This 122-nucleotide RNA from Iocasia frigidifontis belongs to the Rfam family "Molybdenum/Tungsten riboswitch aptamer (Moco RNA motif)". Lineage of the source: Bacteria > Bacillati > Clostridia > Halanaerobiaceae > Iocasia. A reference for the family is Weinberg et al. (2007), "Identification of 22 candidate structured RNAs in bacteria using the CMfinder comparative genomics pipeline", Nucleic Acids Res. Its family is annotated with molybdenum ion binding, regulation of gene expression and tungstate binding in the Gene Ontology. The family has 160 seed sequences and 1,248 matches in Rfam 15.1.
[Rfam]
RNA sequence: UAAUAUAUUUAUCUUCGAACUAUUUUACCUAAGGAUAAAAUUCUAAGGUGGUUUAGUCGUUUGGGUUAACAGGGAAACCUUUCAGCCUCCCGUGUUUGGAAAGAAGAUAUAAAUUAAGGAUU
Numbered sequence: 001u002a003a004u005a006u007a008u009u010u011a012u013c014u015u016c017g018a019a020c021u022a023u024u025u026u027a028c029c030u031a032a033g034g035a036u037a038a039a040a041u042u043c044u045a046a047g048g049u050g051g052u053u054u055a056g057u058c059g060u061u062u063g064g065g066u067u068a069a070c071a072g073g074g075a076a077a078c079c080u081u082u083c084a085g086c087c088u089c090c091c092g093u094g095u096u097u098g099g100a101a102a103g104a105a106g107a108u109a110u111a112a113a114u115u116a117a118g119g120a121u122u
Stems, first nucleotide, its partner, number of pairs: 006113001011108006019057004025051005033044003063088005069082001071080003089099002
Dot-bracket structure: .....(....((((((..((((..(((((...(((......)))..)))))..)))).....(((((.(.(((....))).).)))))((.......))...))))))....).........